This 76-nucleotide RNA sequence from Crocodylus porosus belongs to the Rfam family "Mammalian CPEB3 ribozyme". Rfam 15.1 lists 5,706 matches to the family in 197 species. Pairs were carried over by alignment from the consensus structure, which is taken from published work. The mammalian CPEB3 ribozyme is a self cleaving RNA located in the second intron of the CPEB3 gene which belongs to a family of genes regulating messenger RNA polyadenylation. The source organism's lineage runs through Eukaryota, Craniata, Dipnotetrapodomorpha, Sauropsida and Crocodylus.
RNA sequence: AUUGCAAGUUUCAGGCCACAGCAGAAGUGCUCACAGCACAGCCUGUCAGAUUCCAACAAAAUCUGUGAAUUCUGCU
Numbered sequence: 001a002u003u004g005c006a007a008g009u010u011u012c013a014g015g016c017c018a019c020a021g022c023a024g025a026a027g028u029g030c031u032c033a034c035a036g037c038a039c040a041g042c043c044u045g046u047c048a049g050a051u052u053c054c055a056a057c058a059a060a061a062u063c064u065g066u067g068a069a070u071u072c073u074g075c076u
Stems, first nucleotide, its partner, number of pairs: 014043003020076007027039003047065006